Overview: The family of this 82-nucleotide RNA sequence from Leptobrachium leishanense is "mir-2763 microRNA precursor family". Taxonomically the source falls in Leptobrachium (Eukaryota, Bilateria, Gnathostomata, Sarcopterygii). Its family is annotated with miRNA-mediated post-transcriptional gene silencing and RISC complex in the Gene Ontology.
RNA sequence: UGUAAAUCCUUCUCAAUAAUGAGCACAAUUUUUUUAAAAAACAAUUUGUGAAAAUUGUGCUCAUUAUUGAGAAGGAUUUACA
Numbered sequence: 001u002g003u004a005a006a007u008c009c010u011u012c013u014c015a016a017u018a019a020u021g022a023g024c025a026c027a028a029u030u031u032u033u034u035u036a037a038a039a040a041a042c043a044a045u046u047u048g049u050g051a052a053a054a055u056u057g058u059g060c061u062c063a064u065u066a067u068u069g070a071g072a073a074g075g076a077u078u079u080a081c082a
Base pairs, nucleotide, nucleotide: 002081003080004079005078006077008075009074010073011072012071013070014069015068016067017066018065019064020063021062022061024059025058026057027056028055031054032053033052034051037046038045